[Rfam]
This 108-nucleotide RNA from Vibrio alginolyticus belongs to the Rfam family "Alpha operon ribosome binding site". Rfam describes the family as follows. The bacterial alpha operon ribosome binding site is surrounded by this complex pseudoknotted structure. Translation of the mRNA produces 4 ribosomal protein products, one of which (S4) acts as a translational repressor by binding to the nested pseudoknot region. The mechanism of repression is thought to involve a conformational switch in the pseudoknot region and ribosome entrapment.
RNA sequence: AGUAGUAUUCCGCAGCGUAUCCAUAACGGGCUUUGCUGCGGCUAAUUCUUUUAUAGAAACACUUAGGAGUGAAUAAUGGCCCGUAUAGCAGGCAUUAACAUUCCUGAU
Numbered sequence: 001a002g003u004a005g006u007a008u009u010c011c012g013c014a015g016c017g018u019a020u021c022c023a024u025a026a027c028g029g030g031c032u033u034u035g036c037u038g039c040g041g042c043u044a045a046u047u048c049u050u051u052u053a054u055a056g057a058a059a060c061a062c063u064u065a066g067g068a069g070u071g072a073a074u075a076a077u078g079g080c081c082c083g084u085a086u087a088g089c090a091g092g093c094a095u096u097a098a099c100a101u102u103c104c105u106g107a108u
Base pairs, nucleotide, nucleotide: 004049005048007046008045009044010041011040012039013038021092022091027083028082029081030080036106
The literature on the family includes a 2001 paper in J Biol Chem by Schlax et al., "Translational repression of the Escherichia coli alpha operon mRNA: importance of an mRNA conformational switch and a ternary entrapment complex". Pairs were carried over by alignment from the consensus structure, which is taken from published work. Gene Ontology term of the family: ribosome binding. By type it is a cis-regulatory element.